The family of this 126-nucleotide RNA from Clostridiales bacterium oral taxon 876 is "azaaromatic riboswitch aptamer (yjdF RNA)".

[Rfam]
RNA sequence: UUAUAUAGAGAUAAAAACACAGUUCGGUUGGUAGUCCGGACCUGUAUAUGAAUAUAAAAAUAUUUACAUAUUUAUAUAUAGCAGUAACCUUCCCUCCUGGGGUCGUCCGUUCUCUAUGAUUCAUGA
Numbered sequence: 001u002u003a004u005a006u007a008g009a010g011a012u013a014a015a016a017a018c019a020c021a022g023u024u025c026g027g028u029u030g031g032u033a034g035u036c037c038g039g040a041c042c043u044g045u046a047u048a049u050g051a052a053u054a055u056a057a058a059a060a061u062a063u064u065u066a067c068a069u070a071u072u073u074a075u076a077u078a079u080a081g082c083a084g085u086a087a088c089c090u091u092c093c094c095u096c097c098u099g100g101g102g103u104c105g106u107c108c109g110u111u112c113u114c115u116a117u118g119a120u121u122c123a124u125g126a
Stems, first nucleotide, its partner, number of pairs: 004118008022041006042081014092102003
Annotation: A search with the family's covariance model found it, with a score of 83 bits.